[Rfam]
RNA sequence: GGGCGGGUAGCCGUUAAGACUUGCAGUGAUGUUUAACUCCUCUCACGUGAACAUCACAGCAAGUCUGUGCUGCUUCCC
Numbered sequence: 001g002g003g004c005g006g007g008u009a010g011c012c013g014u015u016a017a018g019a020c021u022u023g024c025a026g027u028g029a030u031g032u033u034u035a036a037c038u039c040c041u042c043u044c045a046c047g048u049g050a051a052c053a054u055c056a057c058a059g060c061a062a063g064u065c066u067g068u069g070c071u072g073c074u075u076c077c078c
Base pairs, nucleotide, nucleotide: 017066018065019064020063021062022061023060026057027056028055029054030053031052032051033050034049035048
Rfam assigns this 78-nucleotide RNA sequence from Trichechus manatus to the family "mir-499 microRNA precursor family". A reference for the family is Murchison et al. (2008), "Conservation of small RNA pathways in platypus", Genome Res. A search with the family's covariance model found it, with a score of 92 bits. The base pairs follow the family's consensus structure, which was predicted with RNAalifold.